The record is a 338-nucleotide RNA, which matches "throat-1 RNA" in Rfam. The family's consensus secondary structure is taken from published work.
RNA sequence: AGCACUCGCCAAUAGUGCUAUAUAAAUAGAAAGCGAUUGUAAAGUUUCGCCUACAGUUUCGUAAUGCUGACGCAAUAAAAGGACGGGGAUUAAUUCUAUGGAUCUAUUUCAAAUAGAUUAACCCCUAAAGGGCAGAAGAUGUAGCGAAGCCCAUUCUGUUUAGCGAUGAAAUAACAGAUAAAUUAGCUACAAUGGGUAUGGUUUAAUCGCCGGAGUUAGAUUCCGGAUAGUUGCGAAAGUAACGGGAUUAUAUAGGUAUAUUAGCAAUAAUAUAACAAGUAGGGCAUGGAUUAAGACGCUUGAUAAUAUAUACAGCUGUAGAAAGCUGACUUUAAAUA
Numbered sequence: 001a002g003c004a005c006u007c008g009c010c011a012a013u014a015g016u017g018c019u020a021u022a023u024a025a026a027u028a029g030a031a032a033g034c035g036a037u038u039g040u041a042a043a044g045u046u047u048c049g050c051c052u053a054c055a056g057u058u059u060c061g062u063a064a065u066g067c068u069g070a071c072g073c074a075a076u077a078a079a080a081g082g083a084c085g086g087g088g089a090u091u092a093a094u095u096c097u098a099u100g101g102a103u104c105u106a107u108u109u110c111a112a113a114u115a116g117a118u119u120a121a122c123c124c125c126u127a128a129a130g131g132g133c134a135g136a137a138g139a140u141g142u143a144g145c146g147a148a149g150c151c152c153a154u155u156c157u158g159u160u161u162a163g164c165g166a167u168g169a170a171a172u173a174a175c176a177g178a179u180a181a182a183u184u185a186g187c188u189a190c191a192a193u194g195g196g197u198a199u200g201g202u203u204u205a206a207u208c209g210c211c212g213g214a215g216u217u218a219g220a221u222u223c224c225g226g227a228u229a230g231u232u233g234c235g236a237a238a239g240u241a242a243c244g245g246g247a248u249u250a251u252a253u254a255g256g257u258a259u260a261u262u263a264g265c266a267a268u269a270a271u272a273u274a275a276c277a278a279g280u281a282g283g284g285c286a287u288g289g290a291u292u293a294a295g296a297c298g299c300u301u302g303a304u305a306a307u308a309u310a311u312a313c314a315g316c317u318g319u320a321g322a323a324a325g326c327u328g329a330c331u332u333u334a335a336a337u338a
Stems, first nucleotide, its partner, number of pairs: 002018005033050004054069004086125003090121006097115003140191006153179002156177004210226005230243005257274007276302005313328005
Dot-bracket structure: .(((((.......)))))..............((((..........))))...((((........))))................(((.((((((.(((.............))))))))).)))..............((((((.......((.((((..............))))))......))))))..................(((((.......)))))...(((((....))))).............(((((((....))))))).(((((.................)))))..........(((((......)))))..........